RNA: mir-202 microRNA precursor family
RNA sequence: UUGUUCCUUUUUCCUAUGCUUAUACCUCUUUGAGAAAUAGCUGUAAAGAGGCAUAGGGCAUGGGAAAAUGGGGCGG
Numbered sequence: 001u002u003g004u005u006c007c008u009u010u011u012u013c014c015u016a017u018g019c020u021u022a023u024a025c026c027u028c029u030u031u032g033a034g035a036a037a038u039a040g041c042u043g044u045a046a047a048g049a050g051g052c053a054u055a056g057g058g059c060a061u062g063g064g065a066a067a068a069u070g071g072g073g074c075g076g
Stems, first nucleotide, its partner, number of pairs: 010067010021055003025051008